The family of this 112-nucleotide RNA from Capsicum baccatum is "Plastid-psbA-1 3UTR RNA". Lineage of the source: Eukaryota > Tracheophyta > Spermatophyta > eudicotyledons > Capsicum. Rfam's curators write: Plastid psbA-1 is a non-coding RNA (ncRNA) present in plastids. Pairs were carried over by alignment from the consensus structure, which was predicted with LocARNA. It scores 57 bits against the family's covariance model.
RNA sequence: UUCAAUCUAUAAAUAAAUAAAUAAGAAUCCCAGACUAGUCUAUAGCAGGUUUCGAAAAGAAAGUAGCAAUAAUCAUUUUCUAGUUUUAUCAGGAGGGUGUUAUUGCUCCAUU
Numbered sequence: 001u002u003c004a005a006u007c008u009a010u011a012a013a014u015a016a017a018u019a020a021a022u023a024a025g026a027a028u029c030c031c032a033g034a035c036u037a038g039u040c041u042a043u044a045g046c047a048g049g050u051u052u053c054g055a056a057a058a059g060a061a062a063g064u065a066g067c068a069a070u071a072a073u074c075a076u077u078u079u080c081u082a083g084u085u086u087u088a089u090c091a092g093g094a095g096g097g098u099g100u101u102a103u104u105g106c107u108c109c110a111u112u
Stems, first nucleotide, its partner, number of pairs: 008019003060112002063109001065107008074099003078095004